c-di-GMP-I riboswitch aptamer: an 87-nucleotide RNA sequence from Paremcibacter congregatus.
GEMM was predicted in a large-scale screen for bacterial structured RNA regulatory elements. Genes associated with GEMM are involved in a diverse array of functions, including chemotaxis regulation, signal transduction, secretion and chitin.
Lineage of the source: Bacteria > Pseudomonadota > Alphaproteobacteria > Emcibacterales > Paremcibacter.
RNA sequence: CUGUGACAAUCGCAAACCGUCGGUAACGGCGAGACGCAAAGCUUCUGGUCCUGGUGUAUGCCAUUAAGGGAUAGCAGAGCUACCGUA
Numbered sequence: 001c002u003g004u005g006a007c008a009a010u011c012g013c014a015a016a017c018c019g020u021c022g023g024u025a026a027c028g029g030c031g032a033g034a035c036g037c038a039a040a041g042c043u044u045c046u047g048g049u050c051c052u053g054g055u056g057u058a059u060g061c062c063a064u065u066a067a068g069g070g071a072u073a074g075c076a077g078a079g080c081u082a083c084c085g086u087a
Base pairs, nucleotide, nucleotide: 012037013036018031019030020029021028022027040081041080042079043078045077046076047075048072049071050070055066056065